[Rfam]
RNA: Bacterial RNase P class B
Organism: Sporosarcina sp. HYO08
RNA sequence: GAAUUCAGGUAAUCGCUGCAAUGCUUGACGUUGUAGAGGAAAGUCCAUGCUCACACGAUUCUGAGACGAUCGUAGUGUUCGUGCGUGACGAAAAAAUAAGUCGCGGCUUCGUGCAAAUAGCACGUUGACGGCGGGAAUAAGCCCUAAGUCCGUUCGCGGAUAUGGGUGAGGUUCCCUGAAAAGUGCCACAGUGACGUAGCCGAUUCGGAAACGGAUCGGGUGGAACGCGGUAAACCCCACGAGUGAGAAACCCAAAUUAUGGUAGGGGCACUCUUCUGAAGGAAUUGAACGGACGAAGGGACAGGCAAUUGCCUGUAGAUAGAUGAUUACCACCCUAAGUACGAGGCUUCGGCCGUUUGAGUACACGGGAACAAAACAUGGCUUAUCGAA
Numbered sequence: 001g002a003a004u005u006c007a008g009g010u011a012a013u014c015g016c017u018g019c020a021a022u023g024c025u026u027g028a029c030g031u032u033g034u035a036g037a038g039g040a041a042a043g044u045c046c047a048u049g050c051u052c053a054c055a056c057g058a059u060u061c062u063g064a065g066a067c068g069a070u071c072g073u074a075g076u077g078u079u080c081g082u083g084c085g086u087g088a089c090g091a092a093a094a095a096a097u098a099a100g101u102c103g104c105g106g107c108u109u110c111g112u113g114c115a116a117a118u119a120g121c122a123c124g125u126u127g128a129c130g131g132c133g134g135g136a137a138u139a140a141g142c143c144c145u146a147a148g149u150c151c152g153u154u155c156g157c158g159g160a161u162a163u164g165g166g167u168g169a170g171g172u173u174c175c176c177u178g179a180a181a182a183g184u185g186c187c188a189c190a191g192u193g194a195c196g197u198a199g200c201c202g203a204u205u206c207g208g209a210a211a212c213g214g215a216u217c218g219g220g221u222g223g224a225a226c227g228c229g230g231u232a233a234a235c236c237c238c239a240c241g242a243g244u245g246a247g248a249a250a251c252c253c254a255a256a257u258u259a260u261g262g263u264a265g266g267g268g269c270a271c272u273c274u275u276c277u278g279a280a281g282g283a284a285u286u287g288a289a290c291g292g293a294c295g296a297a298g299g300g301a302c303a304g305g306c307a308a309u310u311g312c313c314u315g316u317a318g319a320u321a322g323a324u325g326a327u328u329a330c331c332a333c334c335c336u337a338a339g340u341a342c343g344a345g346g347c348u349u350c351g352g353c354c355g356u357u358u359g360a361g362u363a364c365a366c367g368g369g370a371a372c373a374a375a376a377c378a379u380g381g382c383u384u385a386u387c388g389a390a
Base pairs, nucleotide, nucleotide: 004390005389006388007386008331009330010329011328012327013326014325016036017035018034019033020032021031041384042383043382045381046380047379048378049377050247051246052245053244054243055073056072057071058070060069061068079242080241081240082239083238084105085104086103087102088101089100106129107127110124111123112122113121114120130237131236133176134175135174136173141167142166143165144164148161149160150159151158152157183235184234185231186230187229200219201218202217203216204215205214206213207212251267252266253265271300272299273298274297275296276295301316302315303314304313305312306311334369335368336367339364340363341362342361